[Rfam]
RNA sequence: UCAGAAAAAGGCAAACCUAUCGUAAGGUAGGGACGCAAAGUUACAGAUCCUAAAGCACAACUGCAAACGGAUGGCUGUGCUGCCUGGA
Numbered sequence: 001u002c003a004g005a006a007a008a009a010g011g012c013a014a015a016c017c018u019a020u021c022g023u024a025a026g027g028u029a030g031g032g033a034c035g036c037a038a039a040g041u042u043a044c045a046g047a048u049c050c051u052a053a054a055g056c057a058c059a060a061c062u063g064c065a066a067a068c069g070g071a072u073g074g075c076u077g078u079g080c081u082g083c084c085u086g087g088a
Stems, first nucleotide, its partner, number of pairs: 001088001003085002011036002016031006034074001039081003044077003047072003
Dot-bracket structure: (.((......((...((((((....))))))..[))..(((..((((((....................))).]))).)))..))..)
c-di-GMP-I-GGC riboswitch aptamer: an 88-nucleotide RNA from Gracilibacillus dipsosauri.
Pairs were carried over by alignment from the consensus structure, which is taken from published work.
NCBI's taxonomy places the organism under Bacteria, Bacillati, Bacilli, Caryophanales, Gracilibacillus.